[Rfam]
RNA sequence: GCGGAUGGUCGGAUGACCGCGGGGGCGCGCCCUCGAGGAAAGUCCGGGCUCCAUGAAGCGACGGUGCCGGGUAACGCCCGGCCGGGGCAACCCGAGGGACAGCGCCACAGAGAACAGACCGCCAUGCAUGCAUGGCAAGGGUGAAACGGUGGGGUAAGAGCCCACCGCGGGACGGGCAACCGGACCGGCAUGGCAAGCCCCACCGGGAGCAAUGUCGAAUAGGGACUUCACGCGGGGCCGGUCCGUCAGGAUACCGCCGCAGGGCCGCUUCAGCCCGAGGUCCGGGUUGGCAGCUUGACCCCCGCGCGCAAGCACGGGGGCAGAUGAAUGGUCAUCCAGGGGGGCGCAAGCCUCCCGGACAGAACCCGGCUUACAGACCAUCCGCAUCU
Numbered sequence: 001g002c003g004g005a006u007g008g009u010c011g012g013a014u015g016a017c018c019g020c021g022g023g024g025g026c027g028c029g030c031c032c033u034c035g036a037g038g039a040a041a042g043u044c045c046g047g048g049c050u051c052c053a054u055g056a057a058g059c060g061a062c063g064g065u066g067c068c069g070g071g072u073a074a075c076g077c078c079c080g081g082c083c084g085g086g087g088c089a090a091c092c093c094g095a096g097g098g099a100c101a102g103c104g105c106c107a108c109a110g111a112g113a114a115c116a117g118a119c120c121g122c123c124a125u126g127c128a129u130g131c132a133u134g135g136c137a138a139g140g141g142u143g144a145a146a147c148g149g150u151g152g153g154g155u156a157a158g159a160g161c162c163c164a165c166c167g168c169g170g171g172a173c174g175g176g177c178a179a180c181c182g183g184a185c186c187g188g189c190a191u192g193g194c195a196a197g198c199c200c201c202a203c204c205g206g207g208a209g210c211a212a213u214g215u216c217g218a219a220u221a222g223g224g225a226c227u228u229c230a231c232g233c234g235g236g237g238c239c240g241g242u243c244c245g246u247c248a249g250g251a252u253a254c255c256g257c258c259g260c261a262g263g264g265c266c267g268c269u270u271c272a273g274c275c276c277g278a279g280g281u282c283c284g285g286g287u288u289g290g291c292a293g294c295u296u297g298a299c300c301c302c303c304g305c306g307c308g309c310a311a312g313c314a315c316g317g318g319g320g321c322a323g324a325u326g327a328a329u330g331g332u333c334a335u336c337c338a339g340g341g342g343g344g345c346g347c348a349a350g351c352c353u354c355c356c357g358g359a360c361a362g363a364a365c366c367c368g369g370c371u372u373a374c375a376g377a378c379c380a381u382c383c384g385c386a387u388c389u
Stems, first nucleotide, its partner, number of pairs: 001385010011374001012336007020035006040372003044369005049209004058270001060268001062205005067081005082096001083094004097200002102198002104194003119140002121136006148166006167189001168187003173182003213292004223283006262276004300319005306313002